[Rfam]
RNA sequence: AUUUUUGGAUAAUCGCGUGAGAAUAUUUUAUUUUCAUGAGGAAAGUCCAUGCUAGCACGGGCUGUGAUGCCCGUAGUGUUUGUGCUAGGUGAAACAAUAAGCCUAGGGACGAGAAAUCGUUACGGCGGACGAAACAGCUACGUCUCUGGAUAUGCUGGAAUAGUCCUGAAAGUGCCACAGUGACGUAGUUUUUGCAGAAACGCAAAAAGUGGAACGCGGUAAACCCCUCAAGCUAGCAACCCAAACUUUGGUCGGGGCACGGAAUGCGUGGAAACGAACAUAGCAUUCUGACUGGAAACAGUAGACAGAUGAUUAUCGAAGGAAAUGAUACCUAGUUAUUUCUGGAACAAAACAUGGCUUAUAGAA
Numbered sequence: 001a002u003u004u005u006u007g008g009a010u011a012a013u014c015g016c017g018u019g020a021g022a023a024u025a026u027u028u029u030a031u032u033u034u035c036a037u038g039a040g041g042a043a044a045g046u047c048c049a050u051g052c053u054a055g056c057a058c059g060g061g062c063u064g065u066g067a068u069g070c071c072c073g074u075a076g077u078g079u080u081u082g083u084g085c086u087a088g089g090u091g092a093a094a095c096a097a098u099a100a101g102c103c104u105a106g107g108g109a110c111g112a113g114a115a116a117u118c119g120u121u122a123c124g125g126c127g128g129a130c131g132a133a134a135c136a137g138c139u140a141c142g143u144c145u146c147u148g149g150a151u152a153u154g155c156u157g158g159a160a161u162a163g164u165c166c167u168g169a170a171a172g173u174g175c176c177a178c179a180g181u182g183a184c185g186u187a188g189u190u191u192u193u194g195c196a197g198a199a200a201c202g203c204a205a206a207a208a209g210u211g212g213a214a215c216g217c218g219g220u221a222a223a224c225c226c227c228u229c230a231a232g233c234u235a236g237c238a239a240c241c242c243a244a245a246c247u248u249u250g251g252u253c254g255g256g257g258c259a260c261g262g263a264a265u266g267c268g269u270g271g272a273a274a275c276g277a278a279c280a281u282a283g284c285a286u287u288c289u290g291a292c293u294g295g296a297a298a299c300a301g302u303a304g305a306c307a308g309a310u311g312a313u314u315a316u317c318g319a320a321g322g323a324a325a326u327g328a329u330a331c332c333u334a335g336u337u338a339u340u341u342c343u344g345g346a347a348c349a350a351a352a353c354a355u356g357g358c359u360u361a362u363a364g365a366a
Stems, first nucleotide, its partner, number of pairs: 004366003007362001008317007016038006043360003047357005052236005057074006080231003084227001085106006107123001108121005124226002127166004135157004142151003172224002174220003189208007240256003260290007291302004321343009
RNA: Bacterial RNase P class B
Organism: Streptococcus intermedius